Shown here is a 42-nucleotide RNA from Shigella flexneri, a member of the family "ES036 (CssrF) sRNA". About the family: Differentially expressed under several chemical stress conditions. Also identified in Shigella as CssrF. A search with the family's covariance model found it, with a score of 43 bits. The family's consensus secondary structure was predicted with RNAfold. It is annotated as a small RNA. For this family Rfam cites "Differential expression of small RNAs under chemical stress and fed-batch fermentation in E. coli" (Rau et al., BMC Genomics, 2015).

RNA sequence: AAACCGCGCAAAUUCAAUAUAUUGCGGAGAAAAUGUAGGCCU
Numbered sequence: 001a002a003a004c005c006g007c008g009c010a011a012a013u014u015c016a017a018u019a020u021a022u023u024g025c026g027g028a029g030a031a032a033a034u035g036u037a038g039g040c041c042u
Stems, first nucleotide, its partner, number of pairs: 004029001007026005
Dot-bracket structure: ...(..(((((..........)))))..).............